RNA sequence: AUGGCGGUCCGAAACCCAUACUUUUCACUUUCGAACGGGUGAGUGUACUAUCACUUUGGAAGACGUCUAUAUGUUACUCGGCUUACCUUUUGGAGGUUGAAUUGUUACGGCUCCUCCAA
Numbered sequence: 001a002u003g004g005c006g007g008u009c010c011g012a013a014a015c016c017c018a019u020a021c022u023u024u025u026c027a028c029u030u031u032c033g034a035a036c037g038g039g040u041g042a043g044u045g046u047a048c049u050a051u052c053a054c055u056u057u058g059g060a061a062g063a064c065g066u067c068u069a070u071a072u073g074u075u076a077c078u079c080g081g082c083u084u085a086c087c088u089u090u091u092g093g094a095g096g097u098u099g100a101a102u103u104g105u106u107a108c109g110g111c112u113c114c115u116c117c118a119a
Base pairs, nucleotide, nucleotide: 002118003117004116006114007113009110010109011108013106014105015104027097028096029095030094031093032092033091034090035089037088038087039086040085041084042083043082044081052073053072057069058068059067060066